Shown here is a 91-nucleotide RNA sequence from Eremothecium cymbalariae, a member of the family "Small nucleolar RNA snR57".
RNA sequence: CCUUACAUGAUUAGGAACACUAGUAUUAUUUUUUACUGAGGAAGUAUAUGCAGGACAAAUUGUUUUAGGAAUUCUUCGUUUAUGAUAAAGG
Numbered sequence: 001c002c003u004u005a006c007a008u009g010a011u012u013a014g015g016a017a018c019a020c021u022a023g024u025a026u027u028a029u030u031u032u033u034u035a036c037u038g039a040g041g042a043a044g045u046a047u048a049u050g051c052a053g054g055a056c057a058a059a060u061u062g063u064u065u066u067a068g069g070a071a072u073u074c075u076u077c078g079u080u081u082a083u084g085a086u087a088a089a090g091g
Stems, first nucleotide, its partner, number of pairs: 001091004
Dot-bracket structure: ((((...................................................................................))))
A search with the family's covariance model found it, with a score of 88 bits.
The source organism's lineage runs through Eukaryota, Dikarya, Saccharomycetes, Saccharomycetaceae and Eremothecium cymbalariae.